This 88-nucleotide sequence from Cephalotus follicularis belongs to the Rfam family "mir-160 microRNA precursor family". The family's consensus secondary structure was predicted with PFOLD. Taxonomically the source falls in Cephalotus (Eukaryota, Viridiplantae, Streptophyta, Spermatophyta). The match comes from Rfam's covariance-model search (50 bits).

[Rfam]
RNA sequence: GUCUGCCUGGCUCCCUGAAUGCCAACUAGAAAUCUUGUCAAAGAGUGUUGGCAACCUUCCUACUUGGCAUGAGGGGAGUCAAGCAGGC
Numbered sequence: 001g002u003c004u005g006c007c008u009g010g011c012u013c014c015c016u017g018a019a020u021g022c023c024a025a026c027u028a029g030a031a032a033u034c035u036u037g038u039c040a041a042a043g044a045g046u047g048u049u050g051g052c053a054a055c056c057u058u059c060c061u062a063c064u065u066g067g068c069a070u071g072a073g074g075g076g077a078g079u080c081a082a083g084c085a086g087g088c
Base pairs, nucleotide, nucleotide: 001088002087003086004085005084006083008081009080010079011078012077013076014075016073019070020069021068022067023066024065027062028061029060
Dot-bracket structure: ((((((.(((((((.(..((((((..(((..............................)))..))))))..).))))))).))))))